[Rfam]
RNA: Glycine riboswitch aptamer
Organism: Halothermothrix orenii
RNA sequence: AUGAACUCCGGGAGAGAGACCUGCUACGGGCGCCGAAGGGGACAAGGUGGAAAUUCCACCGAAACUCUCAGGCAAAAGUAUCCCGGGGGGACG
Numbered sequence: 001a002u003g004a005a006c007u008c009c010g011g012g013a014g015a016g017a018g019a020c021c022u023g024c025u026a027c028g029g030g031c032g033c034c035g036a037a038g039g040g041g042a043c044a045a046g047g048u049g050g051a052a053a054u055u056c057c058a059c060c061g062a063a064a065c066u067c068u069c070a071g072g073c074a075a076a077a078g079u080a081u082c083c084c085g086g087g088g089g090g091a092c093g
Base pairs, nucleotide, nucleotide: 006088007087008086009085010084011083012082013081020030021029022028023027032073033072034071035069036068039067040066041065046060047059048058049057